[Rfam]
RNA: mir-970 microRNA precursor family
Organism: Drosophila busckii
RNA sequence: CUGUUGUAGCCAGCGAAUGUUUUAUUUGGUAGCUAUAUACUGAUGAAUCUAUCAUAAGACACACGCGGCUAUAACAG
Numbered sequence: 001c002u003g004u005u006g007u008a009g010c011c012a013g014c015g016a017a018u019g020u021u022u023u024a025u026u027u028g029g030u031a032g033c034u035a036u037a038u039a040c041u042g043a044u045g046a047a048u049c050u051a052u053c054a055u056a057a058g059a060c061a062c063a064c065g066c067g068g069c070u071a072u073a074a075c076a077g
Base pairs, nucleotide, nucleotide: 001077002076003075004074005073006072008070009069010068011067013066014065015064018061019060021059022058023057027054028053029052030051031050